[Rfam]
RNA sequence: UGGAUGAUAUUUGAAAAAACCAUACUGUAUGUUUGAUUUAAUUUUUAUUUUUAAGCUCAUAUCGUAAGAAUGGGACUUGUAG
Numbered sequence: 001u002g003g004a005u006g007a008u009a010u011u012u013g014a015a016a017a018a019a020c021c022a023u024a025c026u027g028u029a030u031g032u033u034u035g036a037u038u039u040a041a042u043u044u045u046u047a048u049u050u051u052u053a054a055g056c057u058c059a060u061a062u063c064g065u066a067a068g069a070a071u072g073g074g075a076c077u078u079g080u081a082g
Stems, first nucleotide, its partner, number of pairs: 001027003004023003008019001010018002053078003056074005062069002
The record is an 82-nucleotide sequence from Enterococcus faecalis, which matches "pan motif" in Rfam. The base pairs follow the family's consensus structure, which is taken from published work. It is one of the family's seed sequences.